[Rfam]
RNA sequence: GCGUCACUGAACGUCAUCUGGGGAUGCGUGCGGACUUCAAAUCCGUAGCCCAAGAAAUUGGGAGUUGUUCGAUUCAACCUGAGGCGU
Numbered sequence: 001g002c003g004u005c006a007c008u009g010a011a012c013g014u015c016a017u018c019u020g021g022g023g024a025u026g027c028g029u030g031c032g033g034a035c036u037u038c039a040a041a042u043c044c045g046u047a048g049c050c051c052a053a054g055a056a057a058u059u060g061g062g063a064g065u066u067g068u069u070c071g072a073u074u075c076a077a078c079c080u081g082a083g084g085c086g087u
Stems, first nucleotide, its partner, number of pairs: 001087005007081001009079001012028003016025003029047006049062005064078004
Selenocysteine transfer RNA: an 87-nucleotide RNA sequence from Dictyostelium purpureum. Gene Ontology term of the family: triplet codon-amino acid adaptor activity. It scores 53 bits against the family's covariance model. The base pairs follow the family's consensus structure, which is taken from published work. The organism belongs to Dictyostelium, within Eukaryota.